[Rfam]
The family of this 73-nucleotide RNA is "DUF3800-IX RNA". The sequence is in the family's curated seed alignment. The family's consensus secondary structure is taken from published work.
RNA sequence: CCGCCCCUGGCGACAAGGCUGCCACAUGAGGUAGUCUUCUCAAGCAAGUCUUGAGAUAGCCAGGGGUGUUUAU
Numbered sequence: 001c002c003g004c005c006c007c008u009g010g011c012g013a014c015a016a017g018g019c020u021g022c023c024a025c026a027u028g029a030g031g032u033a034g035u036c037u038u039c040u041c042a043a044g045c046a047a048g049u050c051u052u053g054a055g056a057u058a059g060c061c062a063g064g065g066g067u068g069u070u071u072a073u
Stems, first nucleotide, its partner, number of pairs: 002068010017036007038056005

Actinobacteria, Firmicutes (1 example), Nitrospirae, Proteobacteria, Verrucomicrobia (1 example).